RNA sequence: CUGCCACUGGCGUUGCAGAGAUGGCUGCUGUGGCAUCUUUGUGUCAAAAGAGUGGCGAGAGAAACCCAGGCUAUGUUCUACGCUCGUUUGUUCUGCACCCCGUGAGCACUCAGAGUGAUUGAUAGCCUGACAUC
Numbered sequence: 001c002u003g004c005c006a007c008u009g010g011c012g013u014u015g016c017a018g019a020g021a022u023g024g025c026u027g028c029u030g031u032g033g034c035a036u037c038u039u040u041g042u043g044u045c046a047a048a049a050g051a052g053u054g055g056c057g058a059g060a061g062a063a064a065c066c067c068a069g070g071c072u073a074u075g076u077u078c079u080a081c082g083c084u085c086g087u088u089u090g091u092u093c094u095g096c097a098c099c100c101c102g103u104g105a106g107c108a109c110u111c112a113g114a115g116u117g118a119u120u121g122a123u124a125g126c127c128u129g130a131c132a133u134c
Stems, first nucleotide, its partner, number of pairs: 002057005007050002009045003015042004020037004025032001067129008081117002084114002087112001089108005

The family of this 134-nucleotide sequence from Illadopsis cleaveri is "Small nucleolar RNA SNORA17".
The source organism's lineage runs through Eukaryota, Eumetazoa, Deuterostomia, Tetrapoda and Illadopsis.
Its family is annotated with RNA processing and nucleolus in the Gene Ontology.
Its Rfam clan is "SNORA17 clan".
snoRNA ACA 17 belongs to the H/ACA family of snoRNAs and is predicted to guide pseudouridylation of the 28S rRNA at positions U4659 and U4598.
The match comes from Rfam's covariance-model search (57 bits).
It is annotated as an H/ACA-box small nucleolar RNA.